[Rfam]
RNA sequence: GCGUGGUGAUGAUGAAAAGUAUUUUAAUCCGACUAAAUUAUAUGAAUGGAUAAAUAACCUCCUACUCAUUCUGA
Numbered sequence: 001g002c003g004u005g006g007u008g009a010u011g012a013u014g015a016a017a018a019g020u021a022u023u024u025u026a027a028u029c030c031g032a033c034u035a036a037a038u039u040a041u042a043u044g045a046a047u048g049g050a051u052a053a054a055u056a057a058c059c060u061c062c063u064a065c066u067c068a069u070u071c072u073g074a
Base pairs, nucleotide, nucleotide: 006069007068008067009066030049033044